[Rfam]
RNA sequence: CAGCAUAAGGCUAGUAUUACCCUUAUGCUAUGUAUGUAGCAUGUAGCA
Numbered sequence: 001c002a003g004c005a006u007a008a009g010g011c012u013a014g015u016a017u018u019a020c021c022c023u024u025a026u027g028c029u030a031u032g033u034a035u036g037u038a039g040c041a042u043g044u045a046g047c048a
Stems, first nucleotide, its partner, number of pairs: 002029009
The family of this 48-nucleotide RNA sequence is "ssNA-helicase RNA". Rfam's curators put it in the seed alignment. The family's RNA type in Rfam is small RNA.